[Rfam]
RNA sequence: AUGUUAUCAAGAAAGGUGGAGGGAUUAGACCCGCUGAAGCCUUAGCAACCCUUUAGAAAUAGAGAAGGUGCUACAUUCUACUUAAUUACUAAUUCAUUUAUUAGUAAUUGGAUAGAUAACAA
Numbered sequence: 001a002u003g004u005u006a007u008c009a010a011g012a013a014a015g016g017u018g019g020a021g022g023g024a025u026u027a028g029a030c031c032c033g034c035u036g037a038a039g040c041c042u043u044a045g046c047a048a049c050c051c052u053u054u055a056g057a058a059a060u061a062g063a064g065a066a067g068g069u070g071c072u073a074c075a076u077u078c079u080a081c082u083u084a085a086u087u088a089c090u091a092a093u094u095c096a097u098u099u100a101u102u103a104g105u106a107a108u109u110g111g112a113u114a115g116a117u118a119a120c121a122a
Base pairs, nucleotide, nucleotide: 002121003120004119005118006117007116008115013043014042015041016040017039021032022031023030026080027079028078029077044072045071046070047069049068050067051064052063053062054061076114081111082110084108086106
Background: This 122-nucleotide RNA sequence from Aquaticitalea lipolytica belongs to the Rfam family "SAM riboswitch aptamer (S box leader)". The base pairs follow the family's consensus structure, which is taken from published work.